[Rfam]
RNA sequence: GUCGAAAAUAAAAAGCUAACUCGUAUAUCCUCGGGGAUAUGGCCCGAGAGUCUCUACCCGGACCCCGAGAAGGUCUGGACUACGAGUGGGAGAUUGCGAGAC
Numbered sequence: 001g002u003c004g005a006a007a008a009u010a011a012a013a014a015g016c017u018a019a020c021u022c023g024u025a026u027a028u029c030c031u032c033g034g035g036g037a038u039a040u041g042g043c044c045c046g047a048g049a050g051u052c053u054c055u056a057c058c059c060g061g062a063c064c065c066c067g068a069g070a071a072g073g074u075c076u077g078g079a080c081u082a083c084g085a086g087u088g089g090g091a092g093a094u095u096g097c098g099a100g101a102c
Base pairs, nucleotide, nucleotide: 019087020086021085022084023083024082025081030048031047032046033045034044035043058078059077060076061075062074063073064072

Shown here is a 102-nucleotide RNA sequence from Paenalicyclobacillus ferrooxydans, a member of the family "Purine riboswitch aptamer". It scores 80 bits against the family's covariance model. Lineage of the source: Bacteria > Bacillati > Bacilli > Alicyclobacillaceae > Paenalicyclobacillus. Rfam links the family to the GO term purine nucleobase biosynthetic process. The family's consensus secondary structure is taken from published work.